[Rfam]
RNA: Glycine riboswitch aptamer
Organism: Celeribacter indicus
RNA sequence: AAUCGCGUGUCGGGAGAAGGGCUCGGGCCCUACCGAAGGAGCAACCGCCCCGGAAAACUCUCAGGUAAACGGACCUUCACGCGGUC
Numbered sequence: 001a002a003u004c005g006c007g008u009g010u011c012g013g014g015a016g017a018a019g020g021g022c023u024c025g026g027g028c029c030c031u032a033c034c035g036a037a038g039g040a041g042c043a044a045c046c047g048c049c050c051c052g053g054a055a056a057a058c059u060c061u062c063a064g065g066u067a068a069a070c071g072g073a074c075c076u077u078c079a080c081g082c083g084g085u086c
Base pairs, nucleotide, nucleotide: 006081007080008079009078012075013074019030020029021028022027032066033065034064035062036061039060040059041058045053046052